The family of this 207-nucleotide RNA is "IS605-orfB-I RNA". It is annotated as a small RNA. The family's consensus secondary structure is taken from published work.
RNA sequence: ACCUUAUAAAAAUGUAUUAAACGCAAGACAGUUUAGCAUUUCCCUGUAAGGUGGUGUUAAGUAGAAACUUUAACGAGAAGUGCUAUUGUGUAGCUUAUAAAGUUGAAAUAGUAUGAGUUAAAGUGGACUAGGUUAACCGUAAGACCUUAAGUUGAAAGAAUUUAAAAUCGACCUUAAUAGUUGUUAUAACUGUUGAGUUACGGUUAC
Numbered sequence: 001a002c003c004u005u006a007u008a009a010a011a012a013u014g015u016a017u018u019a020a021a022c023g024c025a026a027g028a029c030a031g032u033u034u035a036g037c038a039u040u041u042c043c044c045u046g047u048a049a050g051g052u053g054g055u056g057u058u059a060a061g062u063a064g065a066a067a068c069u070u071u072a073a074c075g076a077g078a079a080g081u082g083c084u085a086u087u088g089u090g091u092a093g094c095u096u097a098u099a100a101a102g103u104u105g106a107a108a109u110a111g112u113a114u115g116a117g118u119u120a121a122a123g124u125g126g127a128c129u130a131g132g133u134u135a136a137c138c139g140u141a142a143g144a145c146c147u148u149a150a151g152u153u154g155a156a157a158g159a160a161u162u163u164a165a166a167a168u169c170g171a172c173c174u175u176a177a178u179a180g181u182u183g184u185u186a187u188a189a190c191u192g193u194u195g196a197g198u199u200a201c202g203g204u205u206a207c
Stems, first nucleotide, its partner, number of pairs: 001052008010041006018035005023029001067124008081113007092104002095101001130147005136204006142168001149162002152159002173197011